[Rfam]
RNA: Small nucleolar RNA SNORD14
RNA sequence: UGGCGACAAUUGAUAAAUUUAAGGCUUGUUUCUCAAAACAUUCACAGAUGCCGCCUAAGAGCUUUCGCCUAGCCAAGCUUGAGAGCUACUACUGCUGAUUCCUUCCUUGGAUGUCCGAGCCU
Numbered sequence: 001u002g003g004c005g006a007c008a009a010u011u012g013a014u015a016a017a018u019u020u021a022a023g024g025c026u027u028g029u030u031u032c033u034c035a036a037a038a039c040a041u042u043c044a045c046a047g048a049u050g051c052c053g054c055c056u057a058a059g060a061g062c063u064u065u066c067g068c069c070u071a072g073c074c075a076a077g078c079u080u081g082a083g084a085g086c087u088a089c090u091a092c093u094g095c096u097g098a099u100u101c102c103u104u105c106c107u108u109g110g111a112u113g114u115c116c117g118a119g120c121c122u
Stems, first nucleotide, its partner, number of pairs: 002121003061086006